This 90-nucleotide RNA sequence from Paramagnetospirillum marisnigri belongs to the Rfam family "Repression of heat shock gene expression (ROSE) element". Rfam describes the family as follows. This family represents a 5' UTR cis-regulatory element found in heat shock mRNAs and is known as the ROSE (repression of heat shock gene expression) element. The ROSE element is a negative regulator of heat shock gene expression. Gene Ontology terms of the family: response to temperature stimulus and regulation of translation. The family has 13 seed sequences and 381 matches in Rfam 15.1. Taxonomically the source falls in Paramagnetospirillum (Bacteria, Pseudomonadota, Rhodospirillales, Magnetospirillaceae).
RNA sequence: GCCAGCGCCGCCAUGCGGGCUGGCUUGAGACGACGGCGAGGCCGUCAGUCCUCGUAACCAUGUUGCUCGCAGGGGAUGUGGCUAUGGGAC
Numbered sequence: 001g002c003c004a005g006c007g008c009c010g011c012c013a014u015g016c017g018g019g020c021u022g023g024c025u026u027g028a029g030a031c032g033a034c035g036g037c038g039a040g041g042c043c044g045u046c047a048g049u050c051c052u053c054g055u056a057a058c059c060a061u062g063u064u065g066c067u068c069g070c071a072g073g074g075g076a077u078g079u080g081g082c083u084a085u086g087g088g089a090c
Stems, first nucleotide, its partner, number of pairs: 001024006008018004029050003032046006051088006058081007066074003

The family's RNA type in Rfam is RNA thermoregulator.